[Rfam]
RNA sequence: UUUUAGAAAUGGAAAAUAGACCUUUGAUGACUCUAAAGAAAUUUUUAACCUUCCAUUUAUGACUGAUCUAUUAAUCUCAAAUAUGACAUAGUGCUAAUUUUGAUCUAAGUAAGCUCUGAAUCGUGAAUCUCUUAAGUAUUAAAAUAGUAAGUUGUCUUAAAAAUUAUUCUAUCUCCAAUCAGUACACUACACUAUAAAAAUUGCUAUAAAAAAGAACUAUUGAUGAAAAUUGAGGAGGUAAUUAUGGCAGCAAAAUGUACCAAAGCACUAAUUAUAGACUCACUUUUAUAUUACAGUUAUGUGUUGAUGCAUCAAUGUUGAUGUAUCUUUAGAUUAUUUAGGCGAAAAAUUAGG
Number, nucleotide and partner (000 for none) at each position: 001u000002u000003u000004u000005a000006g000007a000008a000009a000010u000011g000012g000013a000014a000015a000016a000017u000018a000019g000020a000021c342022c341023u340024u000025u000026g338027a337028u336029g335030a334031c000032u333033c332034u331035a330036a329037a328038g327039a326040a000041a000042u000043u000044u000045u000046u000047a000048a000049c000050c000051u000052u307053c306054c000055a304056u303057u000058u301059a300060u299061g298062a297063c296064u295065g294066a000067u000068c000069u000070a000071u000072u000073a000074a000075u000076c000077u000078c000079a000080a000081a000082u159083a158084u000085g156086a155087c154088a153089u000090a000091g000092u149093g148094c147095u146096a145097a000098u144099u143100u142101u141102g140103a139104u138105c136106u135107a133108a132109g131110u000111a000112a000113g000114c000115u126116c125117u000118g000119a000120a000121u000122c000123g000124u000125g116126a115127a000128u000129c000130u000131c109132u108133u107134a000135a106136g105137u000138a104139u103140u102141a101142a100143a099144a098145u096146a095147g094148u093149a092150a000151g000152u000153u088154g087155u086156c085157u000158u083159a082160a000161a000162a000163a000164u000165u000166a000167u000168u000169c000170u000171a000172u000173c000174u000175c000176c000177a000178a224179u223180c222181a221182g220183u219184a218185c000186a000187c214188u000189a000190c000191a000192c000193u208194a207195u206196a205197a000198a000199a000200a000201u000202u000203g000204c000205u196206a195207u194208a193209a000210a000211a000212a000213a000214g187215a000216a000217c000218u184219a183220u182221u181222g180223a179224u178225g000226a287227a286228a285229a284230u000231u282232g281233a280234g279235g000236a000237g000238g275239u274240a273241a272242u271243u270244a269245u000246g000247g266248c265249a000250g000251c000252a000253a000254a000255a000256u000257g000258u000259a000260c000261c000262a000263a000264a000265g248266c247267a000268c000269u244270a243271a242272u241273u240274a239275u238276a000277g000278a000279c234280u233281c232282a231283c000284u229285u228286u227287u226288a000289u000290a000291u000292u000293a000294c065295a064296g063297u062298u061299a060300u059301g058302u000303g056304u055305u000306g053307a052308u325309g324310c323311a322312u321313c320314a319315a000316u000317g000318u000319u314320g313321a312322u311323g310324u309325a308326u039327c038328u037329u036330u035331a034332g033333a032334u030335u029336a028337u027338u026339u000340a023341g022342g021343c000344g000345a000346a000347a000348a000349a000350u000351u000352a000353g000354g000
Shown here is a 354-nucleotide RNA from Rickettsia prowazekii, a member of the family "Rickettsia sRNA 10". It is annotated as a small RNA. The sequence is in the family's curated seed alignment. On this family, see Schroeder et al., BMC Genomics 2015: "Bacterial small RNAs in the Genus Rickettsia". The organism belongs to Rickettsia prowazekii, within Bacteria.